A member of the RNA family "mir-17 microRNA precursor family", 73 nucleotides long.

[Rfam]
Nucleotides: 073
Base pairs, nucleotide, nucleotide: 007073009071010070013066014065015064016063017062018061019060020059021058022057023056025054026053027052029051030050031049032048033047
Number, partner (000 for none) and nucleotide at each position: 001000c002000u003000a004000g005000c006000a007073g008000u009071a010070u011000c012000a013066a014065a015064g016063u017062g018061c019060u020059c021058a022057u023056a024000g025054u026053g027052c028000a029051g030050g031049u032048a033047g034000c035000u036000u037000g038000g039000a040000a041000a042000u043000g044000g045000a046000c047033c048032u049031a050030c051029u052027g053026u054025a055000a056023u057022g058021u059020g060019g061018g062017c063016a064015c065014u066013u067000a068000c069000a070010g071009u072000a073007c

This family represents the microRNA (miRNA) precursor mir-17, family, which includes mir-20, mir-91, and mir-103. miRNAs are transcribed as ~70nt precursors (modelled here) and subsequently processed by the Dicer enzyme to give a ~22nt product. In this case the mature sequence comes from the 3' arm of the precursor. For this family Rfam cites "Identification of novel genes coding for small expressed RNAs" (Lagos-Quintana et al., Science, 2001).